Overview
The family of this 127-nucleotide RNA sequence from Corynebacterium terpenotabidum is "atpB RNA".
RNA sequence: CCCCCGGCAUCGUGCGGAUGUGCGACGGAGUCCACGGUGACCGGGUACCACCUGACGACCUCCAUCGCACCGCCUGACGCACAGGUCACGCGGCUCAACCUCGGGAGAGAACGCUGAGCGUUACAAC
Numbered sequence: 001c002c003c004c005c006g007g008c009a010u011c012g013u014g015c016g017g018a019u020g021u022g023c024g025a026c027g028g029a030g031u032c033c034a035c036g037g038u039g040a041c042c043g044g045g046u047a048c049c050a051c052c053u054g055a056c057g058a059c060c061u062c063c064a065u066c067g068c069a070c071c072g073c074c075u076g077a078c079g080c081a082c083a084g085g086u087c088a089c090g091c092g093g094c095u096c097a098a099c100c101u102c103g104g105g106a107g108a109g110a111a112c113g114c115u116g117a118g119c120g121u122u123a124c125a126a127c
Stems, first nucleotide, its partner, number of pairs: 002045003006041001008039005070093004075088004
By type it is a cis-regulatory element.
The family's consensus secondary structure is taken from published work.
NCBI's taxonomy places the organism under Bacteria, Actinomycetota, Mycobacteriales, Corynebacterium, Corynebacterium terpenotabidum.